[Rfam]
RNA sequence: UGAGUUGGCCGGGUAGUCGCUGCUUUGUUGAUGUCCUUUGGGAGACUGACAGAGGGGAGGAAAGUCCGGGCUCCAUAGGGCAGGGUGCCAGGUAACGCCUGGGGGGCGCGAGCCCACGACCAGUGCAGCAGAGAGCAAACCGCCGAUGACGUGCCUCAGGGUAUGAACAGGUAAGGGUGAAAGGGUGCGGUAAGAGCGCACCGCGCGACUGGCAACAGUUCGUGGCACGGUAAACUCCACCCGGAGCAAGACCAAAUAGGUCCCUAAUGGCGUGGCCCGCGUUGGGGACGGGUAGGUUGCUUGAGCCUGUGAGCGAUUGCAGGCCUAGAUGAAUGACUAUCACCGUUUUACGGUACAGAACCCGGAUUACAGGCCGACUCAACUA
Numbered sequence: 001u002g003a004g005u006u007g008g009c010c011g012g013g014u015a016g017u018c019g020c021u022g023c024u025u026u027g028u029u030g031a032u033g034u035c036c037u038u039u040g041g042g043a044g045a046c047u048g049a050c051a052g053a054g055g056g057g058a059g060g061a062a063a064g065u066c067c068g069g070g071c072u073c074c075a076u077a078g079g080g081c082a083g084g085g086u087g088c089c090a091g092g093u094a095a096c097g098c099c100u101g102g103g104g105g106g107c108g109c110g111a112g113c114c115c116a117c118g119a120c121c122a123g124u125g126c127a128g129c130a131g132a133g134a135g136c137a138a139a140c141c142g143c144c145g146a147u148g149a150c151g152u153g154c155c156u157c158a159g160g161g162u163a164u165g166a167a168c169a170g171g172u173a174a175g176g177g178u179g180a181a182a183g184g185g186u187g188c189g190g191u192a193a194g195a196g197c198g199c200a201c202c203g204c205g206c207g208a209c210u211g212g213c214a215a216c217a218g219u220u221c222g223u224g225g226c227a228c229g230g231u232a233a234a235c236u237c238c239a240c241c242c243g244g245a246g247c248a249a250g251a252c253c254a255a256a257u258a259g260g261u262c263c264c265u266a267a268u269g270g271c272g273u274g275g276c277c278c279g280c281g282u283u284g285g286g287g288a289c290g291g292g293u294a295g296g297u298u299g300c301u302u303g304a305g306c307c308u309g310u311g312a313g314c315g316a317u318u319g320c321a322g323g324c325c326u327a328g329a330u331g332a333a334u335g336a337c338u339a340u341c342a343c344c345g346u347u348u349u350a351c352g353g354u355a356c357a358g359a360a361c362c363c364g365g366a367u368u369a370c371a372g373g374c375c376g377a378c379u380c381a382a383c384u385a
Base pairs, nucleotide, nucleotide: 001381002380003379004378005377006376007375008374009373010372011370012341013340014339015338016337017336018335020057021056023054024053025052026051027050028049029048030047062368063367066365067364068363069362070361071246072245073244074243078278079277080276081275083242084241085240086239087238088102089101090100091099092098103117104115105114106113107112118237119236123235124234125231126230140176141175142172143171144170147167184202185201186200187199188198189197203226204224205223206222207221208220209218210217211216250298251297252296253295260289261288262287263286264285265284269283270282271281272280273279305324306323307322308321309320310319311318312317

The family of this 385-nucleotide RNA sequence from Veronia nyctiphanis is "Bacterial RNase P class A". Taxonomically the source falls in Veronia (Bacteria, Pseudomonadati, Pseudomonadota, Vibrionaceae). Its family is annotated with ribonuclease P activity, tRNA processing and dimeric ribonuclease P complex in the Gene Ontology.